Shown here is a 179-nucleotide sequence from Philodulcilactobacillus myokonensis, a member of the family "Lysine riboswitch aptamer". The match comes from Rfam's covariance-model search (93 bits). Rfam links the family to the GO term lysine biosynthetic process.
[Rfam]
RNA sequence: AGUAAUCGAAGAGGUUGCAACAACCAUCAGUAAGGCUUGCGAGUGACUGUAAUCAUUGAAGCAGCUUGAAAGGGGUUGUUGCCGAAGUGCUGAAUUUUACAGGAUUCAGUGUUCUGGGACGUGGUUCAACAAACUGCGGACUGUCACAAGUUAAUCGCUUGUGGAGCGCUUGAUCAACU
Number, nucleotide and partner (000 for none) at each position: 001a000002g000003u000004a000005a000006u000007c000008g000009a171010a170011g169012a000013g000014g000015u000016u000017g082018c081019a080020a079021c078022a077023a076024c075025c074026a000027u000028c000029a000030g000031u000032a000033a067034g066035g065036c064037u063038u000039g000040c000041g000042a000043g000044u000045g000046a000047c000048u000049g000050u000051a000052a000053u000054c000055a000056u000057u000058g000059a000060a000061g000062c000063a037064g036065c035066u034067u033068g000069a000070a000071a000072g000073g000074g025075g024076u023077u022078g021079u020080u019081g018082c017083c000084g000085a000086a115087g114088u000089g112090c109091u108092g107093a106094a105095u104096u103097u102098u000099a000100c000101a000102g097103g096104a095105u094106u093107c092108a091109g090110u000111g000112u089113u000114c087115u086116g142117g141118g000119a000120c138121g137122u136123g135124g134125u133126u132127c000128a000129a000130c000131a000132a126133a125134c124135u123136g122137c121138g120139g000140a000141c117142u116143g000144u164145c163146a162147c161148a160149a159150g158151u000152u000153a000154a000155u000156c000157g000158c150159u149160u148161g147162u146163g145164g144165a000166g000167c000168g000169c011170u010171u009172g000173a000174u000175c000176a000177a000178c000179u000